Small nucleolar RNA SNORD73: a 68-nucleotide RNA sequence.
[Rfam]
RNA sequence: AACAUGUGAUGAGAAACUGUUUCGGUCCCAGUUGAUGGCCACUGAUAACAUUACAUUUUUCUGAUGUU
Numbered sequence: 001a002a003c004a005u006g007u008g009a010u011g012a013g014a015a016a017c018u019g020u021u022u023c024g025g026u027c028c029c030a031g032u033u034g035a036u037g038g039c040c041a042c043u044g045a046u047a048a049c050a051u052u053a054c055a056u057u058u059u060u061c062u063g064a065u066g067u068u
Stems, first nucleotide, its partner, number of pairs: 001068004
The sequence is in the family's curated seed alignment. Its family is annotated with RNA processing and nucleolus in the Gene Ontology. Rfam 15.1 lists 769 matches to the family in 586 species. Pairs were carried over by alignment from the consensus structure, which was predicted with PFOLD. The family's RNA type in Rfam is C/D-box small nucleolar RNA.